[Rfam]
RNA: HDV ribozyme from F. prausnitzii
RNA sequence: GGGGUGCGCAAUACACUCACCUCCACGUGGUGCACCCCGGGAAACGUAUACUCAUACGGCAAAAUGGCCAAU
Number, nucleotide and partner (000 for none) at each position: 001g038002g037003g036004g035005u034006g033007c032008g000009c000010a000011a000012u000013a000014c000015a000016c000017u000018c000019a031020c030021c029022u000023c000024c000025a000026c000027g000028u000029g021030g020031u019032g007033c006034a005035c004036c003037c002038c001039g000040g000041g000042a000043a000044a000045c058046g057047u056048a055049u054050a000051c000052u000053c000054a049055u048056a047057c046058g045059g000060c000061a000062a000063a000064a000065u000066g000067g000068c000069c000070a000071a000072u000